[Rfam]
RNA sequence: GAUUCGACGGUUCUCCGAGCUAUGAUCCCUACGUCACGAAAGAUACGGGGUGAUAGCCGUGGCAAUAACGCCACUGGGGUGAGUGAAGAAAUGAGCUCGCCUCCCGUGUUUGGAAAGGUGAUCAUGUCUCAACUUC
Numbered sequence: 001g002a003u004u005c006g007a008c009g010g011u012u013c014u015c016c017g018a019g020c021u022a023u024g025a026u027c028c029c030u031a032c033g034u035c036a037c038g039a040a041a042g043a044u045a046c047g048g049g050g051u052g053a054u055a056g057c058c059g060u061g062g063c064a065a066u067a068a069c070g071c072c073a074c075u076g077g078g079g080u081g082a083g084u085g086a087a088g089a090a091a092u093g094a095g096c097u098c099g100c101c102u103c104c105c106g107u108g109u110u111u112g113g114a115a116a117g118g119u120g121a122u123c124a125u126g127u128c129u130c131a132a133c134u135u136c
Stems, first nucleotide, its partner, number of pairs: 006127001012121002015118002019057005025051005033044003059074005077102008087092001103113002
Dot-bracket structure: .....(.....((.((..(((((.(((((...(((......)))..))))).))))).(((((......)))))..((((((((..(....)..))))))))((.......))...)).)).....).........
Shown here is a 136-nucleotide sequence from Shewanella mangrovi, a member of the family "Molybdenum/Tungsten riboswitch aptamer (Moco RNA motif)".
The base pairs follow the family's consensus structure, which is taken from published work.
The source organism's lineage runs through Bacteria, Pseudomonadati, Gammaproteobacteria, Alteromonadales and Shewanella.